Notes:
This 133-nucleotide RNA from Pseudomonas sp. URIL14HWK12:I9 belongs to the Rfam family "Pseudomonas sRNA P14". For this family Rfam cites "Identification of 17 Pseudomonas aeruginosa sRNAs and prediction of sRNA-encoding genes in 10 diverse pathogens using the bioinformatic tool sRNAPredict2" (Livny et al., Nucleic Acids Res, 2006). It is annotated as a small RNA.

RNA sequence: CUGAACGGCUGCUGAACCGGCCAGGGGCAAGGUGUGCAGCGCGCAAAAAUUUGUAGGUUCUUGCAUUGGCUCAGUUUACUUACUACAAGUAAUGGGUAGUAUGUGUGCCGGCCACUUUCUCACUUGUCAGAGG
Numbered sequence: 001c002u003g004a005a006c007g008g009c010u011g012c013u014g015a016a017c018c019g020g021c022c023a024g025g026g027g028c029a030a031g032g033u034g035u036g037c038a039g040c041g042c043g044c045a046a047a048a049a050u051u052u053g054u055a056g057g058u059u060c061u062u063g064c065a066u067u068g069g070c071u072c073a074g075u076u077u078a079c080u081u082a083c084u085a086c087a088a089g090u091a092a093u094g095g096g097u098a099g100u101a102u103g104u105g106u107g108c109c110g111g112c113c114a115c116u117u118u119c120u121c122a123c124u125u126g127u128c129a130g131a132g133g
Base pairs, nucleotide, nucleotide: 026066030062031061032060034058035057037056071111072110074108075107077105078104079103081101082100083099084098085097086096088093116133117132118131119130120129